[Rfam]
RNA sequence: CUCAAUGUUGUCAAUGAUGCAUCUUAUUGGAACUGAAUUUAAGUGAUCUAACCCAUUCGUCACUACCACUGAGACAACAUUGAG
Dot-bracket structure: ((((((((((((............................................................))))))))))))
Shown here is an 84-nucleotide RNA, a member of the family "Small nucleolar RNA SNORD70". Rfam's curators put it in the seed alignment. Rfam 15.1 lists 1,085 matches to the family in 579 species. The literature on the family includes a 2001 paper in EMBO J by Huttenhofer et al., "RNomics: an experimental approach that identifies 201 candidates for novel, small, non-messenger RNAs in mouse". Rfam classes the family as a C/D-box small nucleolar RNA. Rfam's curators write: snoRNA HBII-234 belongs to the C/D family of snoRNAs. It is the human orthologue of the mouse MBII-234 and is predicted to guide 2'O-ribose methylation of the small 18S rRNA on position A512. It is hosted, together with HBII-95, by the core C/D box snoRNA protein encoding gene NOP5/NOP58.